Shown here is an 88-nucleotide RNA from Actinidia chinensis, a member of the family "Small nucleolar RNA R44/J54/Z268 family". Clan: SNORD74 clan. The family's RNA type in Rfam is C/D-box small nucleolar RNA. The match comes from Rfam's covariance-model search (80 bits). The family has 29 seed sequences and 1,168 matches in Rfam 15.1.
[Rfam]
RNA sequence: UGUGCAAGUGAUGAUAAAACAGACAGGGACAUCAGCACCUCCAUAUUGGAGAAUGAUGAUUUGUCUUCGGGAAUCUCUCUGAUGUGCA
Numbered sequence: 001u002g003u004g005c006a007a008g009u010g011a012u013g014a015u016a017a018a019a020c021a022g023a024c025a026g027g028g029a030c031a032u033c034a035g036c037a038c039c040u041c042c043a044u045a046u047u048g049g050a051g052a053a054u055g056a057u058g059a060u061u062u063g064u065c066u067u068c069g070g071g072a073a074u075c076u077c078u079c080u081g082a083u084g085u086g087c088a
Base pairs, nucleotide, nucleotide: 002087003086004085005084006083